[Rfam]
Nucleotides: 073
Base pairs, nucleotide, nucleotide: 002072003071004070005068007067008066009065010064011063012062013061014060015059017057018056019055020054021053022052026050027049028048029047
Number, partner (000 for none) and nucleotide at each position: 001000a002072g003071a004070a005068a006000g007067c008066u009065g010064g011063u012062u013061u014060c015059a016000g017057g018056u019055g020054g021053u022052g023000g024000c025000u026050u027049a028048g029047a030000g031000u032000g033000u034000a035000u036000u037000a038000u039000a040000u041000c042000a043000u044000u045000u046000a047029u048028c049027u050026a051000g052022c053021a054020c055019c056018a057017u058000u059015u060014g061013a062012a063011a064010u065009c066008a067007g068005u069000g070004u071003u072002c073000c
A member of the RNA family "mir-29 microRNA precursor family" from Albula goreensis, 73 nucleotides long. Gene Ontology terms of the family: gene silencing by miRNA and RISC complex. From the family's description: This family represents the microRNA (miRNA) precursors mir-29. It scores 66 bits against the family's covariance model. Taxonomically the source falls in Albula (Eukaryota, Eumetazoa, Bilateria, Elopocephalai).